[Rfam]
RNA sequence: AUCGUUCAUCUCACCACAGCCUCCAAAACAAAGACCGUGGAGAGACGGAAGUAGGUUUAAUUAACCGAAGGAACGCACC
Dot-bracket structure: ..(((((.((((.............................))))..[.....(((.......)))....)))))]...
Numbered sequence: 001a002u003c004g005u006u007c008a009u010c011u012c013a014c015c016a017c018a019g020c021c022u023c024c025a026a027a028a029c030a031a032a033g034a035c036c037g038u039g040g041a042g043a044g045a046c047g048g049a050a051g052u053a054g055g056u057u058u059a060a061u062u063a064a065c066c067g068a069a070g071g072a073a074c075g076c077a078c079c
Stems, first nucleotide, its partner, number of pairs: 003075005009045004048076001054066003